[Rfam]
RNA sequence: UACGCGAUGCCGAAGUCGGGUCGCGUAUCAAACCUUGCUGAUUGUUCAGGAGAUUGACCAUGACC
Numbered sequence: 001u002a003c004g005c006g007a008u009g010c011c012g013a014a015g016u017c018g019g020g021u022c023g024c025g026u027a028u029c030a031a032a033c034c035u036u037g038c039u040g041a042u043u044g045u046u047c048a049g050g051a052g053a054u055u056g057a058c059c060a061u062g063a064c065c
Base pairs, nucleotide, nucleotide: 001027002026003025004024005023006022007021008020010019011018012017031054034052035051036050038049039048040047041046